[Rfam]
RNA: MIR2617 microRNA precursor family
RNA sequence: AUGUAGUGUGACAUGCCCGUUAGGGAAUUACUCUGAUGCAUGAAUUAUUAAUUAAUGGAUUUUUGGGAAACGGGGUGUUACACUAAU
Numbered sequence: 001a002u003g004u005a006g007u008g009u010g011a012c013a014u015g016c017c018c019g020u021u022a023g024g025g026a027a028u029u030a031c032u033c034u035g036a037u038g039c040a041u042g043a044a045u046u047a048u049u050a051a052u053u054a055a056u057g058g059a060u061u062u063u064u065g066g067g068a069a070a071c072g073g074g075g076u077g078u079u080a081c082a083c084u085a086a087u
Stems, first nucleotide, its partner, number of pairs: 004085011016074006